A member of the RNA family "Plant signal recognition particle RNA" from Cucumis sativus, 295 nucleotides long.
It scores 162 bits against the family's covariance model.
The base pairs follow the family's consensus structure, which is taken from published work.
The family's RNA type in Rfam is non-coding RNA gene.
[Rfam]
RNA sequence: GUCGAGCCACUUAACAAUGGCUUGUAACCCAAGUGGGGGCUUUAAGGUGGUUGGAGGUUGGUUCAUCGUAUCUUGUCGAACUCUUAAGAGGACUACUUGCUUGCCCCAAGAAGGGAGUUGGGCCUCGCAUUCUAGACGAAAGUCAAAGUGCGAUGCCUUUAGAUUGGAGGAAACCGCGUGAGGUUGGCCUUACAGAGCAGCGUCACCUCCUGCUCUCGUCGGUGGACGGAUAACGUGCAAGUUCUUGAGAGCCCAAUUACCCUGGUACGAAGUUCAAAACAAGACAACCAACUUU
Numbered sequence: 001g002u003c004g005a006g007c008c009a010c011u012u013a014a015c016a017a018u019g020g021c022u023u024g025u026a027a028c029c030c031a032a033g034u035g036g037g038g039g040c041u042u043u044a045a046g047g048u049g050g051u052u053g054g055a056g057g058u059u060g061g062u063u064c065a066u067c068g069u070a071u072c073u074u075g076u077c078g079a080a081c082u083c084u085u086a087a088g089a090g091g092a093c094u095a096c097u098u099g100c101u102u103g104c105c106c107c108a109a110g111a112a113g114g115g116a117g118u119u120g121g122g123c124c125u126c127g128c129a130u131u132c133u134a135g136a137c138g139a140a141a142g143u144c145a146a147a148g149u150g151c152g153a154u155g156c157c158u159u160u161a162g163a164u165u166g167g168a169g170g171a172a173a174c175c176g177c178g179u180g181a182g183g184u185u186g187g188c189c190u191u192a193c194a195g196a197g198c199a200g201c202g203u204c205a206c207c208u209c210c211u212g213c214u215c216u217c218g219u220c221g222g223u224g225g226a227c228g229g230a231u232a233a234c235g236u237g238c239a240a241g242u243u244c245u246u247g248a249g250a251g252c253c254c255a256a257u258u259a260c261c262c263u264g265g266u267a268c269g270a271a272g273u274u275c276a277a278a279a280c281a282a283g284a285c286a287a288c289c290a291a292c293u294u295u
Base pairs, nucleotide, nucleotide: 001040002039003038004023005022006021007020008019009018011016028037029036030035044294045293046292048290049289050288051287052286053285058279059278061275064272066270067269068268069267070266071265072264075262078254081251082250083249084248085247086246087245088244090243091242096241097240098239099238100237102235103234105229106228107224108223110220111219113217114216115215116214117213118212120158121157122156123155125153126152127151128150129149130148131147133145135144136143137142166210167209168208169207170206176203177202178201179200184195185194186193